Shown here is a 109-nucleotide RNA sequence from Daucus carota, a member of the family "Small nucleolar RNA Z152/R70/R12/". The base pairs follow the family's consensus structure, which was predicted with PFOLD. The organism belongs to Daucus carota, within Eukaryota. The family has 9 seed sequences and 604 matches in Rfam 15.1. By type it is a C/D-box small nucleolar RNA.
[Rfam]
RNA sequence: GCUGCUGUGAUGAGGCUAAGCACCUAUUUGGUGUGUUAGGGUAGUGGACAAGGCUUGAUGGUCUUGCCGUGAUCCCGCUAUUAAACGACUUCUCCUUCCACUGAGCGGA
Numbered sequence: 001g002c003u004g005c006u007g008u009g010a011u012g013a014g015g016c017u018a019a020g021c022a023c024c025u026a027u028u029u030g031g032u033g034u035g036u037u038a039g040g041g042u043a044g045u046g047g048a049c050a051a052g053g054c055u056u057g058a059u060g061g062u063c064u065u066g067c068c069g070u071g072a073u074c075c076c077g078c079u080a081u082u083a084a085a086c087g088a089c090u091u092c093u094c095c096u097u098c099c100a101c102u103g104a105g106c107g108g109a
Stems, first nucleotide, its partner, number of pairs: 002108004